[Rfam]
RNA sequence: CUGUGCCUGGCUCCCUGUAUGCCACUCGUGUGGGCGCCAAUCUAUCGAGACUGGCGACUGCGGCUGGCGUGCGAGGAGCCAAGCAUAC
Number, nucleotide and partner (000 for none) at each position: 001c000002u087003g086004u085005g084006c083007c000008u081009g080010g079011c078012u077013c076014c075015c000016u073017g072018u071019a070020u069021g068022c067023c066024a065025c000026u000027c062028g061029u060030g000031u000032g000033g000034g000035c000036g000037c000038c000039a000040a000041u000042c000043u000044a000045u000046c000047g000048a000049g000050a000051c000052u000053g000054g000055c000056g000057a000058c000059u000060g029061c028062g027063g000064c000065u024066g023067g022068c021069g020070u019071g018072c017073g016074a000075g014076g013077a012078g011079c010080c009081a008082a000083g006084c005085a004086u003087a002088c000
mir-160 microRNA precursor family: an 88-nucleotide RNA from Ensete ventricosum.
Taxonomically the source falls in Ensete (Eukaryota, Viridiplantae, Euphyllophyta, Spermatophyta).
Its family is annotated with miRNA-mediated post-transcriptional gene silencing and RISC complex in the Gene Ontology.